[Rfam]
RNA sequence: CGGCUGAGAGGGCGACAUUCAGUCGCUCGUUUGGGACCUUCCCAACUCGGCCU
Numbered sequence: 001c002g003g004c005u006g007a008g009a010g011g012g013c014g015a016c017a018u019u020c021a022g023u024c025g026c027u028c029g030u031u032u033g034g035g036a037c038c039u040u041c042c043c044a045a046c047u048c049g050g051c052c053u
Stems, first nucleotide, its partner, number of pairs: 002052007010028007031045005

This 53-nucleotide sequence belongs to the Rfam family "DUF3800-VI RNA". The sequence is in the family's curated seed alignment.